[Rfam]
Nucleotides: 199
Base pairs, nucleotide, nucleotide: 001057002056003055004054005053006052007051008050009049012048013047016043017042018041019040022036023035024034025033026032067132068131069130070129071128072127073126074125076123077122078121079120080119082116083115084114085113090109092107094106095105096104097103135193136192137191138190139189140188150180151179152178155175156174157173158172159171160170
Number, partner (000 for none) and nucleotide at each position: 001057g002056c003055c004054a005053g006052c007051g008050c009049u010000a011000a012048g013047u014000c015000a016043g017042c018041u019040g020000u021000c022036c023035a024034g025033g026032c027000g028000c029000c030000g031000u032026g033025u034024c035023u036022g037000g038000c039000u040019c041018a042017g043016u044000g045000u046000u047013a048012c049009a050008g051007c052006g053005c054004u055003g056002g057001u058000a059000g060000a061000g062000g063000a064000a065000g066000u067132c068131u069130c070129u071128g072127u073126a074125g075000u076123g077122g078121c079120u080119c081000u082116c083115a084114g085113c086000u087000c088000u089000g090109c091000u092107g093000g094106c095105u096104c097103u098000g099000u100000u101000u102000u103097a104096g105095a106094g107092u108000u109090g110000g111000c112000u113085g114084c115083u116082g117000u118000u119080g120079a121078g122077c123076u124000g125074c126073u127072g128071c129070a130069g131068g132067g133000c134000c135193u136192g137191g138190c139189c140188c141000a142000a143000c144000g145000a146000g147000a148000g149000u150180g151179g152178c153000c154000u155175g156174u157173c158172c159171u160170g161000a162000u163000c164000c165000c166000c167000c168000a169000g170160c171159a172158g173157g174156a175155c176000c177000g178152g179151c180150c181000u182000a183000g184000u185000g186000a187000c188140g189139g190138g191137c192136c193135g194000a195000a196000c197000a198000u199000u